A member of the RNA family "Plastid-rps18 3UTR RNA" from Gossypium lobatum, 57 nucleotides long. Pairs were carried over by alignment from the consensus structure, which was predicted with LocARNA. For this family Rfam cites "Retrograde signaling in plants: A critical review focusing on the GUN pathway and beyond" (Richter et al., Plant Commun, 2023). Rfam's curators write: Plastid rps18 is a non-coding RNA (ncRNA) present in plastids. It was identified as a short stem-loop motif in the 3 prime untranslate region (3UTR) of rps18 gene.
RNA sequence: UGCAAGUAUUUUACGAUUCAGAACCAACUGUUUCUUGUACAUAUUAUGCAUUAAUCU
Numbered sequence: 001u002g003c004a005a006g007u008a009u010u011u012u013a014c015g016a017u018u019c020a021g022a023a024c025c026a027a028c029u030g031u032u033u034c035u036u037g038u039a040c041a042u043a044u045u046a047u048g049c050a051u052u053a054a055u056c057u
Stems, first nucleotide, its partner, number of pairs: 018037001020035004025030001
Background
A search with the family's covariance model found it, with a score of 68 bits. The organism belongs to Gossypium, within Eukaryota.